[Rfam]
RNA sequence: CAGUGGUACUAUACCUCAGUUUUAUCAGGUGUUUGUUAAAACCACCUGAAAAGACCGAGGUUAUGUCUCACUG
Numbered sequence: 001c002a003g004u005g006g007u008a009c010u011a012u013a014c015c016u017c018a019g020u021u022u023u024a025u026c027a028g029g030u031g032u033u034u035g036u037u038a039a040a041a042c043c044a045c046c047u048g049a050a051a052a053g054a055c056c057g058a059g060g061u062u063a064u065g066u067c068u069c070a071c072u073g
Stems, first nucleotide, its partner, number of pairs: 003071004008066002013061005019055002022052002025049007
This 73-nucleotide RNA sequence from Microtus ochrogaster belongs to the Rfam family "mir-875 microRNA precursor family". It scores 87 bits against the family's covariance model. The organism belongs to Microtus, within Eukaryota. The family has 12 seed sequences and 202 matches in Rfam 15.1. The family's consensus secondary structure was predicted with RNAalifold.